[Rfam]
Background:
Rfam assigns this 505-nucleotide RNA from Saccharothrix australiensis to the family "Saccharopolyspora sRNA 350". The family's RNA type in Rfam is antisense RNA. A search with the family's covariance model found it, with a score of 184 bits. Rfam 15.1 lists 1,170 matches to the family in 705 species. For this family Rfam cites "Prediction and characterization of small non-coding RNAs related to secondary metabolites in Saccharopolyspora erythraea" (Liu et al., PLoS One, 2013).
RNA sequence: UUGGCGGUGAACUCCCACUCGGUCUCCUGGCCGGUGAGCACCUCGGCGCCGAAGUGCGCGCCGUCGGCCAGCGUGUCCAGCACGGUCUGCGCGCCGUACUCGCCCUCGCCGAUCACGUCGACCUUGCCGUGCGCGAUGAGGUAGACCUCCUCGGCGCGGCGGCCCCGCUCGACCACCACGUCGCCGACGGCGAACUCGCGCUGCUCGAACCGGUCGGCGAGCGCGACCAGCACCUCGUCGUCCGGGAAGUCGCGCAGCGCGCGCAGUUCCCGCAGCUCCUGCGGGAUGACCCGGAUGUCCGCGCCGGUGCUCACGAAGGUCACCCGCCCGUCGCCCACCGCGUAGGUGAGCCUGCGGUUGACCCGGUAGGUGCCCGCCUGGGUCUGCACCCACGGGAGCUUGCGCAGCAGCCACCGGGGUGAGAUGGCCUGCAUCUGGGGGACGGACUUGGUCGUGGUCGCCAGGUUCCGCGCGCCCGCCGUGCUGAGGCUCCGCCGCUGCUCGG
Dot-bracket structure: .....((((.(..(((....(((..(((......((((((((..(((((.((.((.(..(.(((((((......(.(.((.(((((......))))).)).))....)))).....((...((...(.(((.(((..(.(..((....(.......((((.(..............).....)))).....)..))).)..))).)..)).)...))...))))).)..).)).((((((((........((.(.((((.(.......).)...)))).))...))))))...))..)).)))))))))))))..).))..).))...(((........)))...........((((..((((.....))).)))))..)))..).))))((.(..(.(((.(.(.(.......)).)..))).)..).)).....((.(..((((((((((.......)))))).))))..).))...((..(.(.(.......).).)..)).
Numbered sequence: 001u002u003g004g005c006g007g008u009g010a011a012c013u014c015c016c017a018c019u020c021g022g023u024c025u026c027c028u029g030g031c032c033g034g035u036g037a038g039c040a041c042c043u044c045g046g047c048g049c050c051g052a053a054g055u056g057c058g059c060g061c062c063g064u065c066g067g068c069c070a071g072c073g074u075g076u077c078c079a080g081c082a083c084g085g086u087c088u089g090c091g092c093g094c095c096g097u098a099c100u101c102g103c104c105c106u107c108g109c110c111g112a113u114c115a116c117g118u119c120g121a122c123c124u125u126g127c128c129g130u131g132c133g134c135g136a137u138g139a140g141g142u143a144g145a146c147c148u149c150c151u152c153g154g155c156g157c158g159g160c161g162g163c164c165c166c167g168c169u170c171g172a173c174c175a176c177c178a179c180g181u182c183g184c185c186g187a188c189g190g191c192g193a194a195c196u197c198g199c200g201c202u203g204c205u206c207g208a209a210c211c212g213g214u215c216g217g218c219g220a221g222c223g224c225g226a227c228c229a230g231c232a233c234c235u236c237g238u239c240g241u242c243c244g245g246g247a248a249g250u251c252g253c254g255c256a257g258c259g260c261g262c263g264c265a266g267u268u269c270c271c272g273c274a275g276c277u278c279c280u281g282c283g284g285g286a287u288g289a290c291c292c293g294g295a296u297g298u299c300c301g302c303g304c305c306g307g308u309g310c311u312c313a314c315g316a317a318g319g320u321c322a323c324c325c326g327c328c329c330g331u332c333g334c335c336c337a338c339c340g341c342g343u344a345g346g347u348g349a350g351c352c353u354g355c356g357g358u359u360g361a362c363c364c365g366g367u368a369g370g371u372g373c374c375c376g377c378c379u380g381g382g383u384c385u386g387c388a389c390c391c392a393c394g395g396g397a398g399c400u401u402g403c404g405c406a407g408c409a410g411c412c413a414c415c416g417g418g419g420u421g422a423g424a425u426g427g428c429c430u431g432c433a434u435c436u437g438g439g440g441g442a443c444g445g446a447c448u449u450g451g452u453c454g455u456g457g458u459c460g461c462c463a464g465g466u467u468c469c470g471c472g473c474g475c476c477c478g479c480c481g482u483g484c485u486g487a488g489g490c491u492c493c494g495c496c497g498c499u500g501c502u503c504g505g
Stems, first nucleotide, its partner, number of pairs: 006390004011385001014382003021325002023322001026319002028316001035313008045305005051299002054233002057230001060227001062225003065111004075103001077102001079100002082097005117222002122217002127212001129210002131206001133204003138199001140197001143196002149192001157186004162177001235295002237290006251281002254278001256277003259271001261269001329342003354377004360373001361371003391431002394428001397425001399423003403418001405416001407415001437476002440473001443470004447465006480504002484500001486498001488496001